RNA sequence: CGUUUUAUGUAGGGGAACCGCUCUGCGGUUGAGAUUUCAUUAUAUAAUGAUAACCCUUUGAACCUGAUCUGGCUGAUACCAGCGUAGGGAACAUAAUGUAAUGCAAU
Dot-bracket structure: .....(((((((((.((((((...))))).......((((......)))))..)))).....((((..((((......))))..))))..)))))............
RNA: TPP riboswitch aptamer (THI element)
Organism: Bacillus mesophilum